The family of this 93-nucleotide RNA sequence from Musa balbisiana is "small nucleolar RNA snoR114". Rfam 15.1 lists 1,645 matches to the family in 183 species.
RNA sequence: AAGCAAUGAGGAUUAUAUGCCCUUGAUGUGAUGGACUGGGUUCGAUCACAACCGUCUGAUUUCAUUAGAAGACAAUUCAGCGCAUCUGAGCUU
Number, nucleotide and partner (000 for none) at each position: 001a093002a092003g091004c090005a000006a000007u000008g000009a000010g000011g000012a000013u000014u000015a000016u000017a000018u000019g000020c000021c000022c000023u000024u000025g000026a000027u000028g000029u000030g000031a000032u000033g000034g000035a000036c000037u000038g000039g000040g000041u000042u000043c000044g000045a000046u000047c000048a000049c000050a000051a000052c000053c000054g000055u000056c000057u000058g000059a000060u000061u000062u000063c000064a000065u000066u000067a000068g000069a000070a000071g000072a000073c000074a000075a000076u000077u000078c000079a000080g000081c000082g000083c000084a000085u000086c000087u000088g000089a000090g004091c003092u002093u001
Lineage of the source: Eukaryota > Tracheophyta > Liliopsida > Musaceae > Musa.